[Rfam]
RNA: L13-Bacteroidia ribosomal protein leader
RNA sequence: GGGGAUAAUCCUUAGAGUCCCCAUAGGGCGGUGUGUUAAUAGCCAUGUCUUUGGCCAGGCCUGGCGGUUAGUGAAUC
Numbered sequence: 001g002g003g004g005a006u007a008a009u010c011c012u013u014a015g016a017g018u019c020c021c022c023a024u025a026g027g028g029c030g031g032u033g034u035g036u037u038a039a040u041a042g043c044c045a046u047g048u049c050u051u052u053g054g055c056c057a058g059g060c061c062u063g064g065c066g067g068u069u070a071g072u073g074a075a076u077c
Stems, first nucleotide, its partner, number of pairs: 001022006036071005042065004047060004